[Rfam]
RNA sequence: GUUAUUGUUUUCUAGGGUUCCGCAGCUGGUGCACAGCUGGUCUGGUCCGAGGGGAAACGCACGAACAGCAUCGUUCGUGUCUACACGGAGGGAUAAAAGCCCGGGAGGU
Dot-bracket structure: ......((((((..((...(((((((((.....))))))..).)).))....))))))((((((((......))))))))...(.[...(((.......))).)..]..

Rfam assigns this 109-nucleotide RNA from Paenibacillus sp. FSL H7-0737 to the family "Guanidine-I riboswitch aptamer". About the family: This family represents a conserved RNA structure found upstream of the ykkC and yxkD genes in Bacillus subtilis and related genes in other bacteria. Its family is annotated with regulation of gene expression in the Gene Ontology. On this family, see Barrick et al., Proc Natl Acad Sci U S A 2004: "New RNA motifs suggest an expanded scope for riboswitches in bacterial genetic control". Rfam 15.1 lists 1,509 matches to the family in 1,281 species.